[Rfam]
RNA sequence: CACAACCUGUCAGGAGAGAGUGGGCACUGCAUUGCUGAUGCAGCAGCACCGCCGCCGAAGGCGCAGGGCCAAUAACCCCAAACGCUCAGGCAAAAGGACUGACAAACGUUU
Numbered sequence: 001c002a003c004a005a006c007c008u009g010u011c012a013g014g015a016g017a018g019a020g021u022g023g024g025c026a027c028u029g030c031a032u033u034g035c036u037g038a039u040g041c042a043g044c045a046g047c048a049c050c051g052c053c054g055c056c057g058a059a060g061g062c063g064c065a066g067g068g069c070c071a072a073u074a075a076c077c078c079c080a081a082a083c084g085c086u087c088a089g090g091c092a093a094a095a096g097g098a099c100u101g102a103c104a105a106a107c108g109u110u111u
Stems, first nucleotide, its partner, number of pairs: 008104006020052004054091003057087002061085003067078002
RNA: Glycine riboswitch aptamer
Organism: Lampropedia aestuarii